[Rfam]
RNA sequence: GCCUGUGAUGCUUCUGUCUGCAAAAUGGAUGUUCUGUGGACUCAAGCCCCUGUUUCAGGGAGAACCUCUUGAAGAAGCAGUUAUAAUAUGACAUCAAUCGACAAAUCUGAGGC
Numbered sequence: 001g002c003c004u005g006u007g008a009u010g011c012u013u014c015u016g017u018c019u020g021c022a023a024a025a026u027g028g029a030u031g032u033u034c035u036g037u038g039g040a041c042u043c044a045a046g047c048c049c050c051u052g053u054u055u056c057a058g059g060g061a062g063a064a065c066c067u068c069u070u071g072a073a074g075a076a077g078c079a080g081u082u083a084u085a086a087u088a089u090g091a092c093a094u095c096a097a098u099c100g101a102c103a104a105a106u107c108u109g110a111g112g113c
Base pairs, nucleotide, nucleotide: 001113002112003111048060049059050058051057052056
Dot-bracket structure: (((............................................(((((...)))))..................................................)))

Source information: Small nucleolar RNA Z278: a 113-nucleotide RNA from Brachypodium distachyon. Rfam's curators write: snoZ278 is a C/D box small nucleolar RNA. Its methylation guide targets have not been reported. NCBI's taxonomy places the organism under Eukaryota, Viridiplantae, Magnoliopsida, Liliopsida, Brachypodium. Pairs were carried over by alignment from the consensus structure, which was predicted with PFOLD. The match comes from Rfam's covariance-model search (42 bits). The family's RNA type in Rfam is C/D-box small nucleolar RNA.